[Rfam]
This 77-nucleotide sequence from Gulo gulo belongs to the Rfam family "Small nucleolar RNA U2-19".
RNA sequence: GAUCAAUAUGAAAAUAGAUAAAUUUGUGCAUAAAAGACCUUCCAGUCUAUCUGAUGUGUAUCUCUGUAGUUCUGAGA
Numbered sequence: 001g002a003u004c005a006a007u008a009u010g011a012a013a014a015u016a017g018a019u020a021a022a023u024u025u026g027u028g029c030a031u032a033a034a035a036g037a038c039c040u041u042c043c044a045g046u047c048u049a050u051c052u053g054a055u056g057u058g059u060a061u062c063u064c065u066g067u068a069g070u071u072c073u074g075a076g077a
Base pairs, nucleotide, nucleotide: 028057029056030055031054035048036047037046038045
Overview: The match comes from Rfam's covariance-model search (57 bits). By type it is a C/D-box small nucleolar RNA.